RNA: TPP riboswitch aptamer (THI element)
RNA sequence: UAAACGAAAAAGGGGAGCUAAAUAAAUUUGGCUGAGAGGGAAUGUGUUUGUUCCGACCCAUAACCUGAUCUGGAUAAUGCCAGCGGAGGGAAAUGAUUUAAUCCGAUG
Numbered sequence: 001u002a003a004a005c006g007a008a009a010a011a012g013g014g015g016a017g018c019u020a021a022a023u024a025a026a027u028u029u030g031g032c033u034g035a036g037a038g039g040g041a042a043u044g045u046g047u048u049u050g051u052u053c054c055g056a057c058c059c060a061u062a063a064c065c066u067g068a069u070c071u072g073g074a075u076a077a078u079g080c081c082a083g084c085g086g087a088g089g090g091a092a093a094u095g096a097u098u099u100a101a102u103c104c105g106a107u108g
Base pairs, nucleotide, nucleotide: 008094012059013058014057017032018031019030020029021028039054040053041052042051043050064089065088066087070083071082072081073080